[Rfam]
RNA sequence: UAAAUGUGGAGCAGAACCCACUAUAAAAAACGAGGCGGAACCUGAAAAGCCUUAUGAGUAAGGAAAAUA
Numbered sequence: 001u002a003a004a005u006g007u008g009g010a011g012c013a014g015a016a017c018c019c020a021c022u023a024u025a026a027a028a029a030a031c032g033a034g035g036c037g038g039a040a041c042c043u044g045a046a047a048a049g050c051c052u053u054a055u056g057a058g059u060a061a062g063g064a065a066a067a068u069a
Base pairs, nucleotide, nucleotide: 006021007020008019009018034051035050036049041063042062
The family of this 69-nucleotide sequence from Flavobacterium johnsoniae is "DUF805 RNA". Pairs were carried over by alignment from the consensus structure, which is taken from published work. It is annotated as a cis-regulatory element. Lineage of the source: Bacteria > Pseudomonadati > Flavobacteriia > Flavobacteriales > Flavobacterium johnsoniae.